[Rfam]
RNA: MIR1435 microRNA precursor family
Nucleotides: 201
Stems, first nucleotide, its partner, number of pairs: 005196005011190002013187009023177001025175001031168001033167003045155007054145003059140001061138001063136002067132001071128006
Number, partner (000 for none) and nucleotide at each position: 001000u002000u003000a004000g005196c006195u007194u008193u009192g010000u011190c012189c013187a014186a015185g016184u017183c018182a019181a020180a021179c022000a023177u024000g025175u026000c027000u028000a029000a030000a031168u032000u033167u034166g035165a036000c037000a038000a039000a040000g041000u042000u043000u044000a045155u046154a047153g048152a049151a050150a051149a052000u053000a054145u055144a056143u057000u058000a059140a060000c061138a062000c063136c064135u065000a066000a067132a068000a069000u070000a071128u072127c073126a074125a075124a076123u077000a078000u079000a080000a081000u082000g083000c084000a085000c086000c087000a088000u089000g090000a091000a092000a093000a094000u095000a096000u097000a098000u099000u100000u101000c102000a103000u104000g105000g106000u107000c108000u109000a110000u111000c112000u113000a114000c115000u116000g117000a118000a119000a120000c121000u122000a123076g124075u125074u126073u127072g128071a129000u130000a131000u132067u133000g134000a135064a136063g137000a138061u139000a140059u141000a142000u143056a144055u145054g146000u147000a148000u149051u150050u151049u152048u153047c154046u155045a156000u157000a158000a159000a160000c161000u162000u163000g164000g165035u166034c167033a168031a169000c170000g171000c172000u173000a174000a175025a176000g177023a178000a179021g180020u181019u182018u183017g184016a185015c186014u187013u188000a189012g190011g191000a192009c193008a194007a195006a196005g197000c198000u199000a200000a201000a